[Rfam]
RNA sequence: AAAACCUUAAAUAAUGAAAGCCCUACCUCUCUUUCAUCCUUACGACUCCUCGGUCGUGCCAGUGAAAAUAAGGAACAGUUUUAAUGU
Numbered sequence: 001a002a003a004a005c006c007u008u009a010a011a012u013a014a015u016g017a018a019a020g021c022c023c024u025a026c027c028u029c030u031c032u033u034u035c036a037u038c039c040u041u042a043c044g045a046c047u048c049c050u051c052g053g054u055c056g057u058g059c060c061a062g063u064g065a066a067a068a069u070a071a072g073g074a075a076c077a078g079u080u081u082u083a084a085u086g087u
Stems, first nucleotide, its partner, number of pairs: 034067001039062002041058007
RNA: BsrC
Organism: Pontibacillus marinus